[Rfam]
RNA: M-box riboswitch aptamer (ykoK leader)
Organism: Levilactobacillus suantsaii
RNA sequence: UUUAGAAGCUGUUAGGUGAGGCUCCUAUACGGAAAAUGCUACUGCUCAGAAACGUCGAGAAACGCCAAUGAGUCAGCUGUUCAAGUCAACAUAAGGCUUGAUCUAAUGUAGCUGUUGAAAGACUACGCCGUAUAGUGCUAAAACUCAACGAUUAGCCGACUUU
Numbered sequence: 001u002u003u004a005g006a007a008g009c010u011g012u013u014a015g016g017u018g019a020g021g022c023u024c025c026u027a028u029a030c031g032g033a034a035a036a037u038g039c040u041a042c043u044g045c046u047c048a049g050a051a052a053c054g055u056c057g058a059g060a061a062a063c064g065c066c067a068a069u070g071a072g073u074c075a076g077c078u079g080u081u082c083a084a085g086u087c088a089a090c091a092u093a094a095g096g097c098u099u100g101a102u103c104u105a106a107u108g109u110a111g112c113u114g115u116u117g118a119a120a121g122a123c124u125a126c127g128c129c130g131u132a133u134a135g136u137g138c139u140a141a142a143a144c145u146c147a148a149c150g151a152u153u154a155g156c157c158g159a160c161u162u163u
Stems, first nucleotide, its partner, number of pairs: 008156003011149002013094001015145003020139003025135008038112005044073005053064003079103001081101002085097003114123003
Dot-bracket structure: .......((((([.(((..(((..((((((((.....(((((.(((((....(((......)))....))))).....(.((..(((......])))..)).)....))))).(((....)))....)))))))).)))...)))..))....))).......